[Rfam]
RNA sequence: AUAUGCCUGGCUCCCUGUAUGCCAUUUGUAGAGCCCAUCGAUGCAUCAAUGGCUUCUGUGGAUGGCGUAUGAGGAGCCACGCAUAU
Numbered sequence: 001a002u003a004u005g006c007c008u009g010g011c012u013c014c015c016u017g018u019a020u021g022c023c024a025u026u027u028g029u030a031g032a033g034c035c036c037a038u039c040g041a042u043g044c045a046u047c048a049a050u051g052g053c054u055u056c057u058g059u060g061g062a063u064g065g066c067g068u069a070u071g072a073g074g075a076g077c078c079a080c081g082c083a084u085a086u
Stems, first nucleotide, its partner, number of pairs: 001086006008079007016071009027060003
A member of the RNA family "mir-160 microRNA precursor family" from Cynara cardunculus, 86 nucleotides long. The organism belongs to Cynara cardunculus subsp. cardunculus, within Eukaryota. A reference for the family is Rhoades et al. (2002), "Prediction of plant microRNA targets", Cell. A search with the family's covariance model found it, with a score of 76 bits.